A member of the RNA family "DUF3800-IX RNA", 61 nucleotides long. The base pairs follow the family's consensus structure, which is taken from published work. The family's RNA type in Rfam is small RNA. Rfam's curators put it in the seed alignment. Rfam describes the family as follows. Actinobacteria, Firmicutes (1 example), Nitrospirae, Proteobacteria, Verrucomicrobia (1 example).

Nucleotides: 061
Base pairs, nucleotide, nucleotide: 001057002056003055004054005053006052007051008050009049010048011047017032018031019030020029021028022027035044036043037042
Number, partner (000 for none) and nucleotide at each position: 001057g002056g003055c004054c005053c006052g007051a008050a009049g010048c011047c012000a013000a014000a015000c016000u017032g018031u019030c020029g021028c022027c023000g024000a025000u026000g027022g028021g029020c030019g031018g032017c033000u034000u035044g036043c037042c038000g039000c040000g041000a042037g043036g044035c045000u046000a047011g048010g049009c050008u051007u052006c053005g054004g055003g056002u057001c058000g059000c060000u061000c